The family of this 149-nucleotide RNA sequence from Drosophila albomicans is "Small nucleolar RNA psi18S-1377". The organism belongs to Drosophila, within Eukaryota. The base pairs follow the family's consensus structure, which was predicted with RNAalifold. Rfam's curators write: psi18S-1377 is a member of the H/ACA class of snoRNA. This family is responsible for guiding the modification of uridines 1377 and 1279 to pseudouridine in Drosophila 18S rRNA. By type it is an H/ACA-box small nucleolar RNA.
[Rfam]
RNA sequence: CCGUUCUUGUGUUAUUUGCUGAAUUCGCAUUCUCGUUCAGUGAUCGUCAGAAAGAACGCAUAGUGACUUCCAAGACAGUUUUUCACUCCACAUUGUUGAGCCUAUUAAAAUACCAAGGCUGCUGCAAUACUAACGCGCUGACUACAGAU
Numbered sequence: 001c002c003g004u005u006c007u008u009g010u011g012u013u014a015u016u017u018g019c020u021g022a023a024u025u026c027g028c029a030u031u032c033u034c035g036u037u038c039a040g041u042g043a044u045c046g047u048c049a050g051a052a053a054g055a056a057c058g059c060a061u062a063g064u065g066a067c068u069u070c071c072a073a074g075a076c077a078g079u080u081u082u083u084c085a086c087u088c089c090a091c092a093u094u095g096u097u098g099a100g101c102c103u104a105u106u107a108a109a110a111u112a113c114c115a116a117g118g119c120u121g122c123u124g125c126a127a128u129a130c131u132a133a134c135g136c137g138c139u140g141a142c143u144a145c146a147g148a149u
Stems, first nucleotide, its partner, number of pairs: 002058006010049002016043007092128005099120004